MIR1120/MIR1122 microRNA precursor family: an 87-nucleotide RNA sequence from Aegilops tauschii. The family's consensus secondary structure was predicted with RNAalifold.

RNA sequence: GUACUCUCUCCGUCCCAUAAUGUAAGACGUUUUUUGACACUACACUAGUGCCAAAAAACGUCUUACAUUAUGGGACGGUGAGAGUAG
Numbered sequence: 001g002u003a004c005u006c007u008c009u010c011c012g013u014c015c016c017a018u019a020a021u022g023u024a025a026g027a028c029g030u031u032u033u034u035u036g037a038c039a040c041u042a043c044a045c046u047a048g049u050g051c052c053a054a055a056a057a058a059c060g061u062c063u064u065a066c067a068u069u070a071u072g073g074g075a076c077g078g079u080g081a082g083a084g085u086a087g
Stems, first nucleotide, its partner, number of pairs: 003085003007081002010078002013075005019069018038050004
Dot-bracket structure: ..(((.((.((.(((((.((((((((((((((((((.((((.....)))).)))))))))))))))))).))))).)).)).)))..

Its family is annotated with RISC complex and miRNA-mediated post-transcriptional gene silencing in the Gene Ontology.